[Rfam]
RNA sequence: ACCGUUGAAACCGGCGCGGCACGGGUCUAUAUGUGAUCUGUCUCGGCAACGGGACUAUGGGCAUAAACGCGCAUGGAAUAAGCGGAUCGGACCCGGGGGCGGUACCCGGCGGCUCCACCAGACAUCCCUUCGUUGGGGGACCAUGGGGCCGAAACAGGAUCGACGAACGUGUAAAGAUGUGGCUUUGUCCCGGUGAGAUACCACCGUUAUCGGUUCAUCAAGCAUAAUUGCCAACGACAAUCGUGCUCCGGUCGCUCUGGCUGCGUAAGCAGUCCGAAAGAUCGAUUCUUAAGCCCUUGUGCCUAGCAGCGUAAGGCGGGGUUCGCAGGCACCUGGCAACAGAAGCCUGCACU
Numbered sequence: 001a002c003c004g005u006u007g008a009a010a011c012c013g014g015c016g017c018g019g020c021a022c023g024g025g026u027c028u029a030u031a032u033g034u035g036a037u038c039u040g041u042c043u044c045g046g047c048a049a050c051g052g053g054a055c056u057a058u059g060g061g062c063a064u065a066a067a068c069g070c071g072c073a074u075g076g077a078a079u080a081a082g083c084g085g086a087u088c089g090g091a092c093c094c095g096g097g098g099g100c101g102g103u104a105c106c107c108g109g110c111g112g113c114u115c116c117a118c119c120a121g122a123c124a125u126c127c128c129u130u131c132g133u134u135g136g137g138g139g140a141c142c143a144u145g146g147g148g149c150c151g152a153a154a155c156a157g158g159a160u161c162g163a164c165g166a167a168c169g170u171g172u173a174a175a176g177a178u179g180u181g182g183c184u185u186u187g188u189c190c191c192g193g194u195g196a197g198a199u200a201c202c203a204c205c206g207u208u209a210u211c212g213g214u215u216c217a218u219c220a221a222g223c224a225u226a227a228u229u230g231c232c233a234a235c236g237a238c239a240a241u242c243g244u245g246c247u248c249c250g251g252u253c254g255c256u257c258u259g260g261c262u263g264c265g266u267a268a269g270c271a272g273u274c275c276g277a278a279a280g281a282u283c284g285a286u287u288c289u290u291a292a293g294c295c296c297u298u299g300u301g302c303c304u305a306g307c308a309g310c311g312u313a314a315g316g317c318g319g320g321g322u323u324c325g326c327a328g329g330c331a332c333c334u335g336g337c338a339a340c341a342g343a344a345g346c347c348u349g350c351a352c353u
Base pairs, nucleotide, nucleotide: 040055041054042053043052044051059190060189061188062187063186069183070182071180072179073178074177083169084168087166088165089164093109094108095107096106097105110151111150112149113148114147115146116145191206192205193204194203197216198215200214201213202212319334320333321332322331325350326349327348328347329346330345
Alphaproteobacteria transfer-messenger RNA: a 353-nucleotide RNA sequence from Salipiger marinus. Taxonomically the source falls in Salipiger (Bacteria, Pseudomonadati, Pseudomonadota, Alphaproteobacteria). It is annotated as a non-coding RNA gene. A search with the family's covariance model found it, with a score of 308 bits. Rfam's curators write: Bacterial tmRNA, also known as 10Sa RNA or SsrA, is named for its dual tRNA and mRNA-like properties. Pairs were carried over by alignment from the consensus structure, which is taken from published work.